[Rfam]
Description: Shown here is a 127-nucleotide RNA from Notodromas monacha, a member of the family "U4atac minor spliceosomal RNA".
RNA sequence: AGUGUCCUUAUCAAUGGGGCUGCUGUACGUUCAAUGAUUGUGUAGAGAGGACGUACUUGCCGACACCAUUGUGAAAAGUAACCCGCGUCAGCAUCUCUCACGAGGGGUUGGUGCAAUUUUUGGAAGU
Numbered sequence: 001a002g003u004g005u006c007c008u009u010a011u012c013a014a015u016g017g018g019g020c021u022g023c024u025g026u027a028c029g030u031u032c033a034a035u036g037a038u039u040g041u042g043u044a045g046a047g048a049g050g051a052c053g054u055a056c057u058u059g060c061c062g063a064c065a066c067c068a069u070u071g072u073g074a075a076a077a078g079u080a081a082c083c084c085g086c087g088u089c090a091g092c093a094u095c096u097c098u099c100a101c102g103a104g105g106g107g108u109u110g111g112u113g114c115a116a117u118u119u120u121u122g123g124a125a126g127u
Stems, first nucleotide, its partner, number of pairs: 005019004022060002025057001026055007038046002085114006092107001094105004

Overview:
Gene Ontology terms of the family: spliceosomal tri-snRNP complex assembly, U4atac snRNP and mRNA 5'-splice site recognition. Clan: U4 clan. A reference for the family is Davila Lopez et al. (2008), "Computational screen for spliceosomal RNA genes aids in defining the phylogenetic distribution of major and minor spliceosomal components", Nucleic Acids Res. Rfam classes the family as a spliceosomal small nuclear RNA. U4atac is an essential component of the minor U12-type spliceosome complex which is required for removal of the rarer class of eukaryotic introns (AT-AC, U12-type). The source organism's lineage runs through Eukaryota, Eumetazoa, Panarthropoda, Cyprididae and Notodromas.